RNA sequence: UGACUAUAAAAUAACGUAUUAUGUAGCUACUUUACGAUAAUUACUAUUUUAAUUUACAAAAUUAUAGUAACUCCUUGCUAAGUGGUUUACUAUAACGUUAUGGUAAAUAUCCCCAUAUGUUAUAGUAACCCAACUAUCGUAAAUUAGUAUAUAAAAUUAUCGUAAAUGGAGGUGGCUACAGAAUAACUUAUUUUGUAGCUG
Number, nucleotide and partner (000 for none) at each position: 001u201002g200003a000004c198005u197006a196007u195008a194009a193010a192011a191012u190013a189014a188015c000016g000017u185018a184019u183020u182021a000022u180023g179024u178025a177026g176027c175028u174029a173030c172031u171032u165033u164034a163035c162036g161037a160038u159039a158040a157041u156042u155043a000044c000045u151046a150047u149048u000049u147050u146051a145052a144053u143054u142055u141056a140057c139058a000059a000060a000061a000062u000063u000064a000065u000066a000067g000068u000069a000070a000071c000072u000073c000074c000075u000076u000077g000078c000079u000080a000081a000082g137083u136084g135085g134086u133087u132088u127089a126090c125091u124092a123093u122094a121095a120096c119097g118098u117099u000100a000101u000102g112103g111104u000105a000106a000107a000108u000109a000110u000111c103112c102113c000114c000115a000116u000117a098118u097119g096120u095121u094122a093123u092124a091125g090126u089127a088128a000129c000130c000131c000132a087133a086134c085135u084136a083137u082138c000139g057140u056141a055142a054143a053144u052145u051146a050147g049148u000149a047150u046151a045152u000153a000154a000155a042156a041157u040158u039159a038160u037161c036162g035163u034164a033165a032166a000167u000168g000169g000170a000171g031172g030173u029174g028175g027176c026177u025178a024179c023180a022181g000182a020183a019184u018185a017186a000187c000188u014189u013190a012191u011192u010193u009194u008195g007196u006197a005198g004199c000200u002201g001

A member of the RNA family "MIR6217 microRNA precursor family" from Miscanthus lutarioriparius, 201 nucleotides long.
Taxonomically the source falls in Miscanthus (Eukaryota, Embryophyta, Mesangiospermae, Andropogoneae).
Pairs were carried over by alignment from the consensus structure, which was predicted with RNAalifold.
The family has 2 seed sequences and 2,266 matches in Rfam 15.1.
A search with the family's covariance model found it, with a score of 114 bits.